[Rfam]
Nucleotides: 069
Base pairs, nucleotide, nucleotide: 001068002067003066004065
Number, partner (000 for none) and nucleotide at each position: 001068g002067u003066g004065c005000a006000g007000u008000g009000a010000u011000g012000u013000a014000u015000u016000u017000g018000c019000c020000a021000a022000c023000a024000c025000a026000u027000c028000a029000u030000u031000c032000u033000g034000a035000a036000g037000a038000a039000a040000a041000a042000u043000g044000u045000g046000u047000g048000g049000u050000a051000a052000c053000u054000u055000c056000u057000g058000u059000g060000a061000c062000u063000g064000a065004g066003c067002a068001c069000a
The record is a 69-nucleotide sequence from Dasypus novemcinctus, which matches "Small nucleolar RNA SNORD63" in Rfam. The family's consensus secondary structure was predicted with PFOLD. Rfam's curators write: snoRNA U63 is found in both humans and mice. The organism belongs to Dasypus, within Eukaryota.